[Rfam]
RNA sequence: GCUUUCUGAGCAAUUGGUAUAGCAACUGAGAAACCAAUUUCCUUUAGAGAGC
Dot-bracket structure: (((((((((..(((((((.(....).......)))))))....)))))))))